Shown here is a 67-nucleotide RNA sequence from Pipistrellus kuhlii, a member of the family "mir-9256 microRNA precursor family". Gene Ontology terms of the family: RISC complex and miRNA-mediated post-transcriptional gene silencing. Lineage of the source: Eukaryota > Eumetazoa > Gnathostomata > Laurasiatheria > Pipistrellus.
RNA sequence: UUAUACACUGAGUGGCCAGAUUAUGGUGAUAUCUGAAGGCAUCAUAAUCUGGCCACUCAGUGUAGAC
Numbered sequence: 001u002u003a004u005a006c007a008c009u010g011a012g013u014g015g016c017c018a019g020a021u022u023a024u025g026g027u028g029a030u031a032u033c034u035g036a037a038g039g040c041a042u043c044a045u046a047a048u049c050u051g052g053c054c055a056c057u058c059a060g061u062g063u064a065g066a067c
Stems, first nucleotide, its partner, number of pairs: 004064014019049010